TPP riboswitch aptamer (THI element): a 111-nucleotide sequence from Paludifilum halophilum. The literature on the family includes a 2003 paper in FEBS Lett by Kubodera et al., "Thiamine-regulated gene expression of Aspergillus oryzae thiA requires splicing of the intron containing a riboswitch-like domain in the 5'-UTR". Gene Ontology term of the family: thiamine pyrophosphate binding. The base pairs follow the family's consensus structure, which is taken from published work.

RNA sequence: CCAACGACCAACGGGAGCUUGGAGGAGCCAGGCUGAGAGGGCGGGAAUUCUACGCCGACCGUUAAACCUGAUCUGGGUAAUUCCAGCGUAGGAAGUUUCGUUUUGGGAACC
Numbered sequence: 001c002c003a004a005c006g007a008c009c010a011a012c013g014g015g016a017g018c019u020u021g022g023a024g025g026a027g028c029c030a031g032g033c034u035g036a037g038a039g040g041g042c043g044g045g046a047a048u049u050c051u052a053c054g055c056c057g058a059c060c061g062u063u064a065a066a067c068c069u070g071a072u073c074u075g076g077g078u079a080a081u082u083c084c085a086g087c088g089u090a091g092g093a094a095g096u097u098u099c100g101u102u103u104u105g106g107g108a109a110c111c
Base pairs, nucleotide, nucleotide: 006099007098011062012061013060014059017033018032019031020030021029040056041055042054043053067092068091069090070089073086074085075084076083
Dot-bracket structure: .....((...((((..(((((.......)))))......((((.........))))..))))....((((..((((......))))..)))).....))............
The match comes from Rfam's covariance-model search (54 bits).